[Rfam]
RNA sequence: UCCGUCUGGUCUCUUGUGGUGGCAGAGUUUCCUAUGAACAUAUCUAGCACCACAUGAAAUCAGUGCUGU
Numbered sequence: 001u002c003c004g005u006c007u008g009g010u011c012u013c014u015u016g017u018g019g020u021g022g023c024a025g026a027g028u029u030u031c032c033u034a035u036g037a038a039c040a041u042a043u044c045u046a047g048c049a050c051c052a053c054a055u056g057a058a059a060u061c062a063g064u065g066c067u068g069u
Stems, first nucleotide, its partner, number of pairs: 002068001004066001006063005012057002016053006024045003
mir-29 microRNA precursor family: a 69-nucleotide sequence from Dimorphilus gyrociliatus. About the family: This family represents the microRNA (miRNA) precursors mir-29. A search with the family's covariance model found it, with a score of 48 bits. Gene Ontology terms of the family: gene silencing by miRNA and RISC complex. For this family Rfam cites "microRNAs: tiny regulators with great potential" (Ambros, Cell, 2001). Lineage of the source: Eukaryota > Metazoa > Spiralia > Lophotrochozoa > Dimorphilus. The base pairs follow the family's consensus structure, which was predicted with PFOLD.